[Rfam]
RNA: Small nucleolar RNA snR191
Organism: Aspergillus sclerotialis
RNA sequence: UUCCAUUGCUCUGUCAAGGCUCCUCCCUACGACCAUGUCGUAUUCGCCUCAAUGGGAGCGUUGUCUGUUACGGCUUUGGUAGAUUGACACUGGCCCGCGCCGACCUUCAUUCUGAAGCUAGGCUGACGGCUUUCGUUUUGAAAGCUGGUCGCAAAGGGCCGAGUAGUGCAUUGUUUUUGAGUUGAGUUCUGCUUCUGCCUUCUUUGGUGGCGUCAUAGCAGUGCUCUUAGUAACAUUCCACACAUCC
Numbered sequence: 001u002u003c004c005a006u007u008g009c010u011c012u013g014u015c016a017a018g019g020c021u022c023c024u025c026c027c028u029a030c031g032a033c034c035a036u037g038u039c040g041u042a043u044u045c046g047c048c049u050c051a052a053u054g055g056g057a058g059c060g061u062u063g064u065c066u067g068u069u070a071c072g073g074c075u076u077u078g079g080u081a082g083a084u085u086g087a088c089a090c091u092g093g094c095c096c097g098c099g100c101c102g103a104c105c106u107u108c109a110u111u112c113u114g115a116a117g118c119u120a121g122g123c124u125g126a127c128g129g130c131u132u133u134c135g136u137u138u139u140g141a142a143a144g145c146u147g148g149u150c151g152c153a154a155a156g157g158g159c160c161g162a163g164u165a166g167u168g169c170a171u172u173g174u175u176u177u178u179g180a181g182u183u184g185a186g187u188u189c190u191g192c193u194u195c196u197g198c199c200u201u202c203u204u205u206g207g208u209g210g211c212g213u214c215a216u217a218g219c220a221g222u223g224c225u226c227u228u229a230g231u232a233a234c235a236u237u238c239c240a241c242a243c244a245u246c247c
Stems, first nucleotide, its partner, number of pairs: 003079003017066004023058005029041005090161001092160005099123003103119001105117004129145007163241002166238001172235003184226004190220004195212001198209001200207002